[Rfam]
RNA sequence: UGAGGGAAACCUGAAAACCUUUAAAACAGAGUAGGGA
Numbered sequence: 001u002g003a004g005g006g007a008a009a010c011c012u013g014a015a016a017a018c019c020u021u022u023a024a025a026a027c028a029g030a031g032u033a034g035g036g037a
Base pairs, nucleotide, nucleotide: 002021003020004019005018010036011035012034
The family of this 37-nucleotide sequence from Kordia antarctica is "DUF805b RNA".
The match comes from Rfam's covariance-model search (37 bits).
The family's RNA type in Rfam is cis-regulatory element.